RNA sequence: ACCUUAUCCAGAGUGGCGGAGGGACGGGCCCGAUGAAGCCCGGCAACCGGCCGCGUGAAGGCGGCGGCACGGUGCCAAUUCCCGCAGGACGGCAAAGUUCUGGGAGAUAAGGU
Numbered sequence: 001a002c003c004u005u006a007u008c009c010a011g012a013g014u015g016g017c018g019g020a021g022g023g024a025c026g027g028g029c030c031c032g033a034u035g036a037a038g039c040c041c042g043g044c045a046a047c048c049g050g051c052c053g054c055g056u057g058a059a060g061g062c063g064g065c066g067g068c069a070c071g072g073u074g075c076c077a078a079u080u081c082c083c084g085c086a087g088g089a090c091g092g093c094a095a096a097g098u099u100c101u102g103g104g105a106g107a108u109a110a111g112g113u
Stems, first nucleotide, its partner, number of pairs: 001113008013041001015040003021031003025084004042076004047072002050068004080105001085102006
The record is a 113-nucleotide sequence from Brockia lithotrophica, which matches "SAM riboswitch aptamer (S box leader)" in Rfam.